The family of this 36-nucleotide RNA sequence from Chitinophaga sp. MD30 is "DUF805b RNA".
It scores 40 bits against the family's covariance model.

RNA sequence: AUUGGGAUUGCCGAAAACCAAAUAACAGAGUAGGCG
Numbered sequence: 001a002u003u004g005g006g007a008u009u010g011c012c013g014a015a016a017a018c019c020a021a022a023u024a025a026c027a028g029a030g031u032a033g034g035c036g
Stems, first nucleotide, its partner, number of pairs: 002021004010035003